[Rfam]
Record summary:
Rfam assigns this 114-nucleotide RNA sequence from Gordonia malaquae to the family "SAM (S-adenosyl methionine) riboswitch aptamer". From the family's description: SAM-IV is a mRNA element that regulates gene expression via direct sensing of S-adenosylmethionine (SAM or AdoMet). SAM-IV riboswitches share conserved nucleotide positions with the previously described SAM-I riboswitches sequence analysis and molecular recognition experiments suggest that SAM-I and SAM-IV riboswitches share similar ligand binding sites, but have different scaffolds.
RNA sequence: GGUCACGAGUAUCAGCGACAAGCCCCGGCUAGCUGGUCGGCAACCCUCCUCCGCGGUGGGGUGCUCCGGGUGACGACCUGGCCGCGCGCAAGGAGUGCGCGGCAAGCGCGAUUU
Number, nucleotide and partner (000 for none) at each position: 001g078002g077003u076004c075005a000006c000007g000008a000009g038010u000011a037012u036013c035014a034015g033016c032017g000018a000019c000020a000021a030022g029023c000024c000025c000026c000027g000028g000029c022030u021031a000032g016033c015034u014035g013036g012037u011038c009039g065040g064041c063042a000043a000044c061045c060046c059047u000048c056049c055050u000051c000052c000053g000054c000055g049056g048057u000058g000059g046060g045061g044062u000063g041064c040065u039066c000067c000068g000069g000070g000071u000072g000073a000074c000075g004076a003077c002078c001079u000080g000081g103082c102083c101084g100085c099086g098087c097088g096089c095090a000091a000092g000093g000094a000095g089096u088097g087098c086099g085100c084101g083102g082103c081104a000105a000106g000107c000108g000109c000110g000111a000112u000113u000114u000
Description: Its family is annotated with regulation of gene expression and S-adenosylmethionine metabolic process in the Gene Ontology. The source organism's lineage runs through Bacteria, Actinomycetota, Mycobacteriales, Gordonia and Gordonia malaquae. The match comes from Rfam's covariance-model search (110 bits).